[Rfam]
RNA sequence: UUAUAAUAUGGAUAUCUAUAACUUUUUAACUGGAAAGCGCACGUAGUGUGAUUAUAUCACCGUGUCUGUUUUUGUGCAAUAUAAAAAGAACCUGGGCAAUUUCACCAGGUUCUUUCUUAA
Number, nucleotide and partner (000 for none) at each position: 001u000002u000003a000004u000005a000006a000007u000008a000009u000010g000011g000012a000013u000014a000015u000016c000017u000018a000019u000020a000021a000022c000023u000024u000025u000026u000027u000028a000029a000030c000031u000032g000033g073034a072035a071036a070037g069038c068039g065040c064041a063042c062043g061044u000045a000046g000047u000048g000049u000050g000051a000052u000053u000054a000055u000056a000057u000058c000059a000060c000061c043062g042063u041064g040065u039066c000067u000068g038069u037070u036071u035072u034073u033074g000075u000076g000077c000078a000079a000080u000081a000082u000083a000084a000085a115086a114087a113088g112089a111090a110091c109092c108093u107094g106095g105096g000097c000098a000099a000100u000101u000102u000103c000104a000105c095106c094107a093108g092109g091110u090111u089112c088113u087114u086115u085116c000117u000118u000119a000120a000